A member of the RNA family "Small nucleolar RNA R38", 72 nucleotides long. From the family's description: snoR38 is a C/D box small nucleolar RNA conserved across yeast, human, Arabidopsis and rice. It is encoded in the intron of elongation factor-1 gamma in both pombe and cerevisiae. snoR38 guides the methylation of 2'-O-ribose sites in 28S rRNA. By type it is a C/D-box small nucleolar RNA.
[Rfam]
RNA sequence: ACAAGCCUAUGAUGGUUAGUUAUCCCUGUCUGAAAAUCUGGACUGAGGGAAAUAAUCUAUUCUGAGGCUUAA
Numbered sequence: 001a002c003a004a005g006c007c008u009a010u011g012a013u014g015g016u017u018a019g020u021u022a023u024c025c026c027u028g029u030c031u032g033a034a035a036a037u038c039u040g041g042a043c044u045g046a047g048g049g050a051a052a053u054a055a056u057c058u059a060u061u062c063u064g065a066g067g068c069u070u071a072a
Stems, first nucleotide, its partner, number of pairs: 003070005
The literature on the family includes a 2001 paper in Nucleic Acids Res by Qu et al., "Identification of 10 novel snoRNA gene clusters from Arabidopsis thaliana".